[Rfam]
RNA sequence: AUAUUCUUAGGCCCGAUCUGUUGGUAGGAACUAAGUACUUGGUGAACUCGCUCUAUGUUGUUCGUUCACUCGCGACACGGUUCCUAUCCCAAGAUCGAGUCUGUGAAUAU
Dot-bracket structure: ((((((.(((((.((((((...((((((((((..((......................................))..))))))))))...)))))).))))).))))))
Numbered sequence: 001a002u003a004u005u006c007u008u009a010g011g012c013c014c015g016a017u018c019u020g021u022u023g024g025u026a027g028g029a030a031c032u033a034a035g036u037a038c039u040u041g042g043u044g045a046a047c048u049c050g051c052u053c054u055a056u057g058u059u060g061u062u063c064g065u066u067c068a069c070u071c072g073c074g075a076c077a078c079g080g081u082u083c084c085u086a087u088c089c090c091a092a093g094a095u096c097g098a099g100u101c102u103g104u105g106a107a108u109a110u
Stems, first nucleotide, its partner, number of pairs: 001110006008103005014097006023088010035076002